[Rfam]
RNA sequence: UUAAGUUAACCGCAUAAAAUAUGUUAUUUUCUUUAAUUAUAUGCAUUGACGUCAAUAAGUCAUAAAACCCCAGACAUUUUUUACUUGAGGUUGAUGCGUAUAAUUAAAGGAGAUGACAUAUUUUAUGUGAUUAACCUAACU
Numbered sequence: 001u002u003a004a005g006u007u008a009a010c011c012g013c014a015u016a017a018a019a020u021a022u023g024u025u026a027u028u029u030u031c032u033u034u035a036a037u038u039a040u041a042u043g044c045a046u047u048g049a050c051g052u053c054a055a056u057a058a059g060u061c062a063u064a065a066a067a068c069c070c071c072a073g074a075c076a077u078u079u080u081u082u083a084c085u086u087g088a089g090g091u092u093g094a095u096g097c098g099u100a101u102a103a104u105u106a107a108a109g110g111a112g113a114u115g116a117c118a119u120a121u122u123u124u125a126u127g128u129g130a131u132u133a134a135c136c137u138a139a140c141u
Stems, first nucleotide, its partner, number of pairs: 001139003005135005011129015029111019049091002052088003
Dot-bracket structure: (((.(((((.(((((((((((((((...(((((((((((((((((((.((.(((...............................))).)).)))))))))))))))))))...))))))))))))))).))))).)))..
RNA: MIR7993 microRNA precursor family
Organism: Anisodus acutangulus